A member of the RNA family "MIR2629 microRNA precursor family" from Medicago truncatula, 72 nucleotides long. Gene Ontology terms of the family: miRNA-mediated post-transcriptional gene silencing and RISC complex. It scores 64 bits against the family's covariance model.
[Rfam]
RNA sequence: UACUCAAAUGUUCCUCGGCAGUUAACUGCCGAAGUUUUAGAAAUCCGGAUGCAGUUAACUGCCGAGGAAAAU
Numbered sequence: 001u002a003c004u005c006a007a008a009u010g011u012u013c014c015u016c017g018g019c020a021g022u023u024a025a026c027u028g029c030c031g032a033a034g035u036u037u038u039a040g041a042a043a044u045c046c047g048g049a050u051g052c053a054g055u056u057a058a059c060u061g062c063c064g065a066g067g068a069a070a071a072u
Stems, first nucleotide, its partner, number of pairs: 012068002015065015